[Rfam]
6S / SsrS RNA: a 193-nucleotide RNA sequence from Listeria booriae. The base pairs follow the family's consensus structure, which is taken from published work. A search with the family's covariance model found it, with a score of 86 bits.
RNA sequence: GGAACCCUAAUGUAUGCGUUAUGGUGCCAAUAUUAUUGAACCGAACAAUUUGAUCUACCUAGGGAGCUUAAGUUCGAGCGUGGCGCACAUGCCCUUUCACGGGGACUUGUAAGACGUUAGACAGGGCACCCACCUGCUGUCUUGAUAGCGGGUUCAAACAAUGGUAUCAAAGGACGGUACGAUUGGGGCUCCU
Numbered sequence: 001g002g003a004a005c006c007c008u009a010a011u012g013u014a015u016g017c018g019u020u021a022u023g024g025u026g027c028c029a030a031u032a033u034u035a036u037u038g039a040a041c042c043g044a045a046c047a048a049u050u051u052g053a054u055c056u057a058c059c060u061a062g063g064g065a066g067c068u069u070a071a072g073u074u075c076g077a078g079c080g081u082g083g084c085g086c087a088c089a090u091g092c093c094c095u096u097u098c099a100c101g102g103g104g105a106c107u108u109g110u111a112a113g114a115c116g117u118u119a120g121a122c123a124g125g126g127c128a129c130c131c132a133c134c135u136g137c138u139g140u141c142u143u144g145a146u147a148g149c150g151g152g153u154u155c156a157a158a159c160a161a162u163g164g165u166a167u168c169a170a171a172g173g174a175c176g177g178u179a180c181g182a183u184u185g186g187g188g189c190u191c192c193u
Stems, first nucleotide, its partner, number of pairs: 002191002005188007012180004017176003033161002036158001037156006062131003066127004073121001075120001077118005087108001092104004